[Rfam]
RNA sequence: UGCAGGCGCACUCUGUGUCACGUUGAACUAUUUCCACAUGUGAUGACAAUUUGUUAACCUUGCUAAAGUAAAUUAAAGUCUCGGUUUAUCCGUGUGAUCGUGUCCUCAAGACUGAUCUCAUUGACUCGCGUCUUACACCCA
Number, nucleotide and partner (000 for none) at each position: 001u000002g063003c062004a060005g059006g058007c000008g000009c000010a054011c053012u000013c000014u048015g047016u046017g044018u043019c042020a041021c040022g039023u038024u000025g037026a000027a000028c000029u000030a000031u000032u000033u000034c000035c000036a000037c025038a023039u022040g021041u020042g019043a018044u017045g000046a016047c015048a014049a000050u000051u000052u000053g011054u010055u000056a000057a000058c006059c005060u004061u000062g003063c002064u000065a000066a000067a000068g000069u000070a000071a000072a000073u000074u000075a133076a000077a000078g131079u130080c000081u000082c128083g127084g000085u000086u000087u000088a000089u124090c123091c000092g121093u120094g119095u000096g117097a116098u115099c114100g112101u111102g000103u000104c000105c000106u000107c000108a000109a000110g000111a101112c100113u000114g099115a098116u097117c096118u000119c094120a093121u092122u000123g090124a089125c000126u000127c083128g082129c000130g079131u078132c000133u075134u000135a000136c000137a000138c000139c000140c000141a000

Description:
The family of this 141-nucleotide sequence from Drosophila mojavensis is "Small nucleolar RNA psi18S-841/snoR66". Rfam describes the family as follows. psi18S-841 is a member of the H/ACA class of snoRNA. This family is responsible for guiding the modification of uridine 841 in Drosophila 18S rRNA to pseudouridine. Gene Ontology terms of the family: RNA processing and nucleolus. By type it is an H/ACA-box small nucleolar RNA. The source organism's lineage runs through Eukaryota, Panarthropoda, Pterygota, Schizophora and mojavensis species complex.